[Rfam]
RNA sequence: AAAUGUUGAUGAUGAAAACUCCUAAGGCUUGUUUCUCAAAACAUUCGCAGUGGCCGCCUAAGAGCUUUCGCCUACGCCAGGCUUGAGAGCUAGUGCUGCUUAUUCCUUCCUUGGAUGUCUGAAAUU
Numbered sequence: 001a002a003a004u005g006u007u008g009a010u011g012a013u014g015a016a017a018a019c020u021c022c023u024a025a026g027g028c029u030u031g032u033u034u035c036u037c038a039a040a041a042c043a044u045u046c047g048c049a050g051u052g053g054c055c056g057c058c059u060a061a062g063a064g065c066u067u068u069c070g071c072c073u074a075c076g077c078c079a080g081g082c083u084u085g086a087g088a089g090c091u092a093g094u095g096c097u098g099c100u101u102a103u104u105c106c107u108u109c110c111u112u113g114g115a116u117g118u119c120u121g122a123a124a125u126u
Stems, first nucleotide, its partner, number of pairs: 001126002004123001064090006
RNA: Small nucleolar RNA SNORD14
Organism: Castanea mollissima